[Rfam]
RNA sequence: GACUGGUCCGAUGGUAGAACUUAUUAACAUUAGUGUCACUAAAGUUGGUAUUCAACCCCCCGCUGCUAAAUUUGACUGGCUUUAA
Numbered sequence: 001g002a003c004u005g006g007u008c009c010g011a012u013g014g015u016a017g018a019a020c021u022u023a024u025u026a027a028c029a030u031u032a033g034u035g036u037c038a039c040u041a042a043a044g045u046u047g048g049u050a051u052u053c054a055a056c057c058c059c060c061c062g063c064u065g066c067u068a069a070a071u072u073u074g075a076c077u078g079g080c081u082u083u084a085a
Base pairs, nucleotide, nucleotide: 001081003079004078005077006076007075008074010073011072015068016064017063022050023049024048026046027045

The record is an 85-nucleotide RNA sequence from Microcebus murinus, which matches "Y RNA" in Rfam. Taxonomically the source falls in Microcebus (Eukaryota, Gnathostomata, Dipnotetrapodomorpha, Mammalia). From the family's description: Y RNAs are components of the Ro ribonucleoprotein particle (Ro RNP), in association with Ro60 and La proteins. The Y RNAs and Ro60 and La proteins are well conserved, but the function of the Ro RNP is not known. In humans the RNA component can be one of four small RNAs -- hY1, hY3, hY4 and hY5. These small RNAs are predicted to fold into a conserved secondary structure containing three stem structures. The largest of the four, hY1, contains an additional hairpin. This family includes a significant number of annotated pseudogenes and the model is expected to discriminate poorly between real and Y RNA related pseudogenes. For this family Rfam cites "Evolution of the vertebrate Y RNA cluster" (Mosig et al., Theory Biosci, 2007). Rfam 15.1 lists 26,986 matches to the family in 650 species. The family's RNA type in Rfam is non-coding RNA gene.